DUF805b RNA: a 35-nucleotide sequence from Chitinophaga flava. By type it is a cis-regulatory element. A search with the family's covariance model found it, with a score of 36 bits.
[Rfam]
RNA sequence: AUUGGGGACGCUGAAAACCAAUAACAGAGUAAGCA
Numbered sequence: 001a002u003u004g005g006g007g008a009c010g011c012u013g014a015a016a017a018c019c020a021a022u023a024a025c026a027g028a029g030u031a032a033g034c035a
Stems, first nucleotide, its partner, number of pairs: 002021004010034003

Notes
The family is grouped with related families in Rfam's "DUF805 clan".